[Rfam]
RNA sequence: CUAGUCCUCUCUUUUGUAAGGGAGGGCGACACCUUCAAAUUGCGGGGACGCCCUAAAGCCCGACUGCAACCAAGCUGUGCCAGCGAUGGCGCGGUGGCCGGGGUAAUGACCCAGGGUAUGGUAACAACGCAGGGGAUGAGAUUAUAUUGAAAUGGGUAAUCCGCAGCCAACCCCUCUCCCUCCUUAUUUAUGGGGGUGGAGGGUGCAGUUCACAGACUAGAUGUGGGUGGGCCGCCUUUUCUUUAAAAAGGGCUGGCUUAAGAUAUAGUCGAAACUCUGCCGAAACGGCAGCC
Numbered sequence: 001c002u003a004g005u006c007c008u009c010u011c012u013u014u015u016g017u018a019a020g021g022g023a024g025g026g027c028g029a030c031a032c033c034u035u036c037a038a039a040u041u042g043c044g045g046g047g048a049c050g051c052c053c054u055a056a057a058g059c060c061c062g063a064c065u066g067c068a069a070c071c072a073a074g075c076u077g078u079g080c081c082a083g084c085g086a087u088g089g090c091g092c093g094g095u096g097g098c099c100g101g102g103g104u105a106a107u108g109a110c111c112c113a114g115g116g117u118a119u120g121g122u123a124a125c126a127a128c129g130c131a132g133g134g135g136a137u138g139a140g141a142u143u144a145u146a147u148u149g150a151a152a153u154g155g156g157u158a159a160u161c162c163g164c165a166g167c168c169a170a171c172c173c174c175u176c177u178c179c180c181u182c183c184u185u186a187u188u189u190a191u192g193g194g195g196g197u198g199g200a201g202g203g204u205g206c207a208g209u210u211c212a213c214a215g216a217c218u219a220g221a222u223g224u225g226g227g228u229g230g231g232c233c234g235c236c237u238u239u240u241c242u243u244u245a246a247a248a249a250g251g252g253c254u255g256g257c258u259u260a261a262g263a264u265a266u267a268g269u270c271g272a273a274a275c276u277c278u279g280c281c282g283a284a285a286c287g288g289c290a291g292c293c
Base pairs, nucleotide, nucleotide: 005026006025007024008023009022010021011020012019013018030229031228032227033226034225036223037222041165042164043163044162045161046160051156052155053154166209167208172203173202174201180196181195182194183193213271215270216269217268218267219266231257232256233255234254236252237251238250239249277291278290279289280288281287
Rfam assigns this 293-nucleotide RNA sequence from Coemansia javaensis to the family "Group I catalytic intron". Rfam 15.1 lists 5,602 matches to the family in 1,395 species. For this family Rfam cites "Self-splicing of group I introns" (Cech, Annu Rev Biochem, 1990). Rfam describes the family as follows. Group I catalytic introns are large self-splicing ribozymes.